[Rfam]
RNA sequence: UUUAAUUAACAGCUUAAUUCUUGAUUCAAGAAGCGGAGGAACCAUUUUCCUGGGGUUAAUUCCAUUUUGGAAGGAAUGUUUCUUAUCAUUCUACCCGUCAGCUAACUUCGCCGGCUAAAAUAAGAGGGAAG
Numbered sequence: 001u002u003u004a005a006u007u008a009a010c011a012g013c014u015u016a017a018u019u020c021u022u023g024a025u026u027c028a029a030g031a032a033g034c035g036g037a038g039g040a041a042c043c044a045u046u047u048u049c050c051u052g053g054g055g056u057u058a059a060u061u062c063c064a065u066u067u068u069g070g071a072a073g074g075a076a077u078g079u080u081u082c083u084u085a086u087c088a089u090u091c092u093a094c095c096c097g098u099c100a101g102c103u104a105a106c107u108u109c110g111c112c113g114g115c116u117a118a119a120a121u122a123a124g125a126g127g128g129a130a131g
Stems, first nucleotide, its partner, number of pairs: 011116004018032005033111006043052002053096003061071004074091004

This 131-nucleotide sequence from Pectinatus brassicae belongs to the Rfam family "c-di-AMP riboswitch aptamer (ydaO/yuaA leader)". About the family: This family represents a conserved RNA structure found upstream of the ydaO and yuaA genes in Bacillus subtilis and related genes in other bacteria. The source organism's lineage runs through Bacteria, Bacillati, Selenomonadales, Selenomonadaceae and Pectinatus.